Rfam assigns this 141-nucleotide RNA from Desulfosporosinus sp. Sb-LF to the family "c-di-AMP riboswitch aptamer (ydaO/yuaA leader)". Lineage of the source: Bacteria > Bacillati > Clostridia > Desulfitobacteriaceae > Desulfosporosinus. This family represents a conserved RNA structure found upstream of the ydaO and yuaA genes in Bacillus subtilis and related genes in other bacteria. It scores 84 bits against the family's covariance model.
RNA sequence: CCAUUAAAAAAGCUGAAUCCAAGCUUAAUGUACUUGGAAUGGGGGAUUAUUUUGGGGUGAAUCACGUGCCGUAACGUGUAGGGCUUUCACCUUCUGCCCGAAUCCGUCAACUAACCUCGUAAGCUUAUGAAAGGUGGAAAU
Numbered sequence: 001c002c003a004u005u006a007a008a009a010a011a012g013c014u015g016a017a018u019c020c021a022a023g024c025u026u027a028a029u030g031u032a033c034u035u036g037g038a039a040u041g042g043g044g045g046a047u048u049a050u051u052u053u054g055g056g057g058u059g060a061a062u063c064a065c066g067u068g069c070c071g072u073a074a075c076g077u078g079u080a081g082g083g084c085u086u087u088c089a090c091c092u093u094c095u096g097c098c099c100g101a102a103u104c105c106g107u108c109a110a111c112u113a114a115c116c117u118c119g120u121a122a123g124c125u126u127a128u129g130a131a132a133g134g135u136g137g138a139a140a141u
Stems, first nucleotide, its partner, number of pairs: 011125004018038006039120006049053001055105003063078004081099004